RNA sequence: GAGAGGCGUGAAGCAUUCUGUAGCUCAAAAGGUUACGGAACUUCAUGGGGAAGCACGUCUCUAGUCACAACUACCACGCUAUUGGUUAGCAAACUGUCCUGAACACAGUUGUAGAGGUUCGACUCCUCACAAAGCAAAAGCCUUUCCCUGCCGGUAAGCGAAAGCGCCACUAAUCCCCGACUGGGAGCAGAAUCGGGGCAGGACGAGCCCGCAAGGCGGAUCCUGUUUGUAGACGAGUAGUGCAGCCAUGGGACGGCCAUCCUAACGGCGAAGCCAAAGUCGCAGAGUAGCUUUCGGCAUUACGAGUGGUCAGCGUUACUGACCGGGCGUUGCACGUACACAGGGGACUGUGUGGACAAGCCGGGAAUCCAUAAUCCGGCGAAAGCGUGUGAAGGAAGGUUUAGUCUCUAGCCC
Numbered sequence: 001g002a003g004a005g006g007c008g009u010g011a012a013g014c015a016u017u018c019u020g021u022a023g024c025u026c027a028a029a030a031g032g033u034u035a036c037g038g039a040a041c042u043u044c045a046u047g048g049g050g051a052a053g054c055a056c057g058u059c060u061c062u063a064g065u066c067a068c069a070a071c072u073a074c075c076a077c078g079c080u081a082u083u084g085g086u087u088a089g090c091a092a093a094c095u096g097u098c099c100u101g102a103a104c105a106c107a108g109u110u111g112u113a114g115a116g117g118u119u120c121g122a123c124u125c126c127u128c129a130c131a132a133a134g135c136a137a138a139a140g141c142c143u144u145u146c147c148c149u150g151c152c153g154g155u156a157a158g159c160g161a162a163a164g165c166g167c168c169a170c171u172a173a174u175c176c177c178c179g180a181c182u183g184g185g186a187g188c189a190g191a192a193u194c195g196g197g198g199c200a201g202g203a204c205g206a207g208c209c210c211g212c213a214a215g216g217c218g219g220a221u222c223c224u225g226u227u228u229g230u231a232g233a234c235g236a237g238u239a240g241u242g243c244a245g246c247c248a249u250g251g252g253a254c255g256g257c258c259a260u261c262c263u264a265a266c267g268g269c270g271a272a273g274c275c276a277a278a279g280u281c282g283c284a285g286a287g288u289a290g291c292u293u294u295c296g297g298c299a300u301u302a303c304g305a306g307u308g309g310u311c312a313g314c315g316u317u318a319c320u321g322a323c324c325g326g327g328c329g330u331u332g333c334a335c336g337u338a339c340a341c342a343g344g345g346g347a348c349u350g351u352g353u354g355g356a357c358a359a360g361c362c363g364g365g366a367a368u369c370c371a372u373a374a375u376c377c378g379g380c381g382a383a384a385g386c387g388u389g390u391g392a393a394g395g396a397a398g399g400u401u402u403a404g405u406c407u408c409u410a411g412c413c414c
Stems, first nucleotide, its partner, number of pairs: 002062008010044004017039009047148007134212002149299006156293004165329002168327001170325001175198006181190003199225005207217003228284003232280001241270003245257003261267001308324006331391006337354007355406003360380006398413003
Shown here is a 414-nucleotide RNA sequence from Bongovirus bongo, a member of the family "Giant, ornate, lake- and Lactobacillales-derived (GOLLD) RNA". The match comes from Rfam's covariance-model search (216 bits). By type it is a non-coding RNA gene. Taxonomically the source falls in Bongovirus bongo (Viruses, Duplodnaviria, Caudoviricetes, Bongovirus). A reference for the family is Weinberg et al. (2009), "Exceptional structured noncoding RNAs revealed by bacterial metagenome analysis", Nature.